[Rfam]
RNA sequence: CUGUCUCGCGAAAAGUAGCCUUUUGGCUGCCUGCCCCCUUCCGUUGAAGAAUAUGGGCUAGCGAGGCAGGUUAUG
Numbered sequence: 001c002u003g004u005c006u007c008g009c010g011a012a013a014a015g016u017a018g019c020c021u022u023u024u025g026g027c028u029g030c031c032u033g034c035c036c037c038c039u040u041c042c043g044u045u046g047a048a049g050a051a052u053a054u055g056g057g058c059u060a061g062c063g064a065g066g067c068a069g070g071u072u073a074u075g
Stems, first nucleotide, its partner, number of pairs: 001069004006064004015030006033058004
RNA: DUF3800-IX RNA